[Rfam]
RNA: Small nucleolar RNA SNORA44
Organism: Muntiacus reevesi
RNA sequence: GAGGAACUUCCCUGGUGGUCCAGUGGUUAAGAAUCUACCUUCCAUGGGAUCUCCAACUGCAUGCGAGAGCCAUGUGGAGAGAUUUUGACAGCACAGGUCAGCAUAAUACCUGCAGCUGCCACUCCCCUUUCCUAUAAUC
Numbered sequence: 001g002a003g004g005a006a007c008u009u010c011c012c013u014g015g016u017g018g019u020c021c022a023g024u025g026g027u028u029a030a031g032a033a034u035c036u037a038c039c040u041u042c043c044a045u046g047g048g049a050u051c052u053c054c055a056a057c058u059g060c061a062u063g064c065g066a067g068a069g070c071c072a073u074g075u076g077g078a079g080a081g082a083u084u085u086u087g088a089c090a091g092c093a094c095a096g097g098u099c100a101g102c103a104u105a106a107u108a109c110c111u112g113c114a115g116c117u118g119c120c121a122c123u124c125c126c127c128u129u130u131c132c133u134a135u136a137a138u139c
Stems, first nucleotide, its partner, number of pairs: 001042001002040002076132006091119002094112004